RNA: mir-263 microRNA precursor family
Organism: Orchesella cincta
RNA sequence: CUGUACUUAUCCUUGGCACUGGAAGAAUUCACAGAUAGUUUUGAAUCGUGGAUUCCCUGGUGCCAUAGAUAAAAGGAA
Numbered sequence: 001c002u003g004u005a006c007u008u009a010u011c012c013u014u015g016g017c018a019c020u021g022g023a024a025g026a027a028u029u030c031a032c033a034g035a036u037a038g039u040u041u042u043g044a045a046u047c048g049u050g051g052a053u054u055c056c057c058u059g060g061u062g063c064c065a066u067a068g069a070u071a072a073a074a075g076g077a078a
Stems, first nucleotide, its partner, number of pairs: 004075001007072004014065005020059003025054002029051004034046001